This 107-nucleotide RNA from Clostridiaceae bacterium 14S0207 belongs to the Rfam family "SAM riboswitch aptamer (S box leader)".
Rfam links the family to the GO term regulation of gene expression.
Taxonomically the source falls in Clostridiaceae (Bacteria, Bacillati, Bacillota, Eubacteriales).

RNA sequence: CUCUUAUCAAGAGAGGUGGAGGGAAAAGGGCCCUGUGAAACCCGGCAACCAGUGUAUAAACACUAAGGUGCCAAUUCCUGCAGAAUUUUAUAUCUGCAAGAUAAGAG
Numbered sequence: 001c002u003c004u005u006a007u008c009a010a011g012a013g014a015g016g017u018g019g020a021g022g023g024a025a026a027a028g029g030g031c032c033c034u035g036u037g038a039a040a041c042c043c044g045g046c047a048a049c050c051a052g053u054g055u056a057u058a059a060a061c062a063c064u065a066a067g068g069u070g071c072c073a074a075u076u077c078c079u080g081c082a083g084a085a086u087u088u089u090a091u092a093u094c095u096g097c098a099a100g101a102u103a104a105g106a107g
Stems, first nucleotide, its partner, number of pairs: 001107008013043001015042003021033003028079003044072004049068002051064004076099001081096004